[Rfam]
RNA sequence: CGCUCAUCCAGAGGGGCAGAGGGACCGGCCCGACGAAGCCCCGGCAACCACGCGCGCACACCACCUCCUCACGAGGCCGACGCCGCAGGUGCCAAGUCCGGCUCGCACGUCUCGUCGUGCGGGAAAGAUGAGGA
Numbered sequence: 001c002g003c004u005c006a007u008c009c010a011g012a013g014g015g016g017c018a019g020a021g022g023g024a025c026c027g028g029c030c031c032g033a034c035g036a037a038g039c040c041c042c043g044g045c046a047a048c049c050a051c052g053c054g055c056g057c058a059c060a061c062c063a064c065c066u067c068c069u070c071a072c073g074a075g076g077c078c079g080a081c082g083c084c085g086c087a088g089g090u091g092c093c094a095a096g097u098c099c100g101g102c103u104c105g106c107a108c109g110u111c112u113c114g115u116c117g118u119g120c121g122g123g124a125a126a127g128a129u130g131a132g133g134a
Stems, first nucleotide, its partner, number of pairs: 003132006013042005021031003025101004043093004048089002051085001097126001102123008
SAM riboswitch aptamer (S box leader): a 134-nucleotide RNA sequence from Jatrophihabitans endophyticus.
NCBI's taxonomy places the organism under Bacteria, Bacillati, Actinomycetota, Actinomycetes, Jatrophihabitans.